A member of the RNA family "small nucleolar RNA snoR137" from Coffea arabica, 151 nucleotides long.
The family has 4 seed sequences and 808 matches in Rfam 15.1.
Taxonomically the source falls in Coffea (Eukaryota, Viridiplantae, Euphyllophyta, Gunneridae).
For this family Rfam cites "Mining small RNA sequencing data: a new approach to identify small nucleolar RNAs in Arabidopsis" (Chen and Wu, Nucleic Acids Res, 2009).
Nucleotides: 151
Base pairs, nucleotide, nucleotide: 003073004072005071006070007069008068016059017058018057019056020055021054022053023052024051025050086145088143089142090141092139099131100130101129103127104126105125106124107123
Number, partner (000 for none) and nucleotide at each position: 001000g002000u003073u004072g005071c006070u007069u008068c009000u010000c011000a012000a013000u014000g015000g016059u017058g018057a019056a020055c021054u022053c023052u024051c025050u026000c027000u028000g029000g030000a031000a032000a033000a034000g035000u036000u037000g038000c039000u040000u041000u042000c043000c044000a045000a046000a047000g048000u049000g050025a051024g052023g053022g054021a055020g056019u057018u058017c059016a060000a061000g062000u063000u064000u065000c066000c067000c068008g069007a070006a071005g072004c073003a074000u075000a076000a077000a078000u079000c080000a081000a082000u083000u084000u085000c086145g087000u088143c089142a090141g091000u092139a093000u094000u095000a096000a097000a098000c099131a100130g101129c102000g103127c104126g105125g106124u107123g108000u109000a110000a111000a112000u113000c114000u115000c116000u117000c118000u119000g120000u121000u122000g123107c124106a125105u126104c127103g128000u129101g130100c131099u132000a133000c134000c135000u136000g137000u138000c139092u140000c141090c142089u143088g144000c145086u146000a147000c148000a149000c150000u151000u